Shown here is a 70-nucleotide sequence, a member of the family "RAGATH-18 RNA". Rfam's curators write: Actinobacteria, Firmicutes, Fusobacteria, Thermotogae (1 example). It is one of the family's seed sequences.
[Rfam]
RNA sequence: CCUUUGGAGUAUCACUCAAACGUUAGUAGCCUGUCUUUUGACGGCGAGGACGGAUAUGAUGAACAAGGAA
Dot-bracket structure: ((((....(((((.......(((.....(((.((......)))))....)))))))).......))))..
Numbered sequence: 001c002c003u004u005u006g007g008a009g010u011a012u013c014a015c016u017c018a019a020a021c022g023u024u025a026g027u028a029g030c031c032u033g034u035c036u037u038u039u040g041a042c043g044g045c046g047a048g049g050a051c052g053g054a055u056a057u058g059a060u061g062a063a064c065a066a067g068g069a070a
Stems, first nucleotide, its partner, number of pairs: 001068004009057005021052003029045003033042002
Record summary
The family's consensus secondary structure is taken from published work.